[Rfam]
RNA sequence: ACGCGGGUUGUGCCAACCGGACGCGACGGUGAUGGGGAACAUGGAGAUUUUUCCGGUUUCUCUCUGUGGCCAACGAAUUGGCAGACGAGCCCCUUAAUCGUCCGACCC
Numbered sequence: 001a002c003g004c005g006g007g008u009u010g011u012g013c014c015a016a017c018c019g020g021a022c023g024c025g026a027c028g029g030u031g032a033u034g035g036g037g038a039a040c041a042u043g044g045a046g047a048u049u050u051u052u053c054c055g056g057u058u059u060c061u062c063u064c065u066g067u068g069g070c071c072a073a074c075g076a077a078u079u080g081g082c083a084g085a086c087g088a089g090c091c092c093c094u095u096a097a098u099c100g101u102c103c104g105a106c107c108c
Stems, first nucleotide, its partner, number of pairs: 006107004011023002014020001025102006034093004040068007069082003
Rhizobiales sRNA Atu_At1: a 108-nucleotide RNA from Paenirhizobium daejeonense.
On this family, see Wilms et al., RNA Biol 2012: "Deep sequencing uncovers numerous small RNAs on all four replicons of the plant pathogen Agrobacterium tumefaciens".
By type it is a small RNA.
The organism belongs to Paenirhizobium, within Bacteria.
A search with the family's covariance model found it, with a score of 111 bits.
Rfam 15.1 lists 200 matches to the family in 177 species.